[Rfam]
RNA sequence: GGCCUGUGAUGAUAACAAUUUGUCCGUACCAUCUGACAUCUGUGACGAUCCUCAUCUGCUAAUGUAUCUCUGAGGCCC
Numbered sequence: 001g002g003c004c005u006g007u008g009a010u011g012a013u014a015a016c017a018a019u020u021u022g023u024c025c026g027u028a029c030c031a032u033c034u035g036a037c038a039u040c041u042g043u044g045a046c047g048a049u050c051c052u053c054a055u056c057u058g059c060u061a062a063u064g065u066a067u068c069u070c071u072g073a074g075g076c077c078c
Stems, first nucleotide, its partner, number of pairs: 001077004

Rfam assigns this 78-nucleotide sequence from Triticum aestivum to the family "small nucleolar RNA snoR117". Rfam links the family to the GO terms RNA processing and nucleolus. Taxonomically the source falls in Triticum (Eukaryota, Embryophyta, Spermatophyta, Triticodae). The literature on the family includes a 2009 paper in Nucleic Acids Res by Chen and Wu, "Mining small RNA sequencing data: a new approach to identify small nucleolar RNAs in Arabidopsis". By type it is a C/D-box small nucleolar RNA. It scores 50 bits against the family's covariance model.